[Rfam]
RNA: pemK RNA
RNA sequence: AUAAUGAUACUCCCGCAUAGUCGAGGUUAGGUCCCAGAGUGCGGCCCGGAGGCUCUCGGGGAGGUGGAAUUCCUGUGA
Number, nucleotide and partner (000 for none) at each position: 001a000002u000003a000004a000005u000006g000007a000008u000009a000010c000011u000012c075013c044014c043015g042016c041017a040018u039019a000020g000021u000022c000023g000024a000025g000026g000027u000028u000029a000030g000031g000032u000033c000034c000035c000036a000037g000038a000039g018040u017041g016042c015043g014044g013045c061046c060047c059048g000049g057050a056051g055052g000053c000054u000055c051056u050057c049058g000059g047060g046061g045062a074063g073064g072065u000066g000067g000068a000069a000070u000071u000072c064073c063074u062075g012076u000077g000078a000